[Rfam]
RNA sequence: GCCCUUGUAGCUCAGUCGUAGUAGCGCAUGACUUGUAUUAAUGAGAUCAUGAGGUCCGCGGUUCAAUCCCGCGCGGGGGCA
Dot-bracket structure: (((((((..(((..........))).(((((...............))))).....(((((.......)))))))))))).

tRNA: an 81-nucleotide RNA sequence from Emergomyces africanus. Pairs were carried over by alignment from the consensus structure, which is taken from published work. By type it is a transfer RNA. About the family: Transfer RNA (tRNA) molecules are approximately 80 nucleotides in length.